[Rfam]
RNA sequence: GCAUGCCGGGUGACAACCGGCCGCAACGGGGAUGGCGGACGUGGCUCAUUUUGCCGGUUUCUGGCCACGACACCAACGCAUCGGUACGCGCUGACGCCUAACCCGUUCCCGGC
Numbered sequence: 001g002c003a004u005g006c007c008g009g010g011u012g013a014c015a016a017c018c019g020g021c022c023g024c025a026a027c028g029g030g031g032a033u034g035g036c037g038g039a040c041g042u043g044g045c046u047c048a049u050u051u052u053g054c055c056g057g058u059u060u061c062u063g064g065c066c067a068c069g070a071c072a073c074c075a076a077c078g079c080a081u082c083g084g085u086a087c088g089c090g091c092u093g094a095c096g097c098c099u100a101a102c103c104c105g106u107u108c109c110c111g112g113c
Base pairs, nucleotide, nucleotide: 006112007111008110009109011023012022014020025107026106027105028104029103030102034098035097036096037095040069041068042067043066044065045064046063072085073084074083

Rfam assigns this 113-nucleotide RNA from Rhodopseudomonas palustris to the family "Rhizobiales sRNA Atu_At1". Lineage of the source: Bacteria > Pseudomonadati > Alphaproteobacteria > Nitrobacteraceae > Rhodopseudomonas palustris. A reference for the family is Wilms et al. (2012), "Deep sequencing uncovers numerous small RNAs on all four replicons of the plant pathogen Agrobacterium tumefaciens", RNA Biol. Pairs were carried over by alignment from the consensus structure, which was predicted with CMfinder. It is one of the family's seed sequences.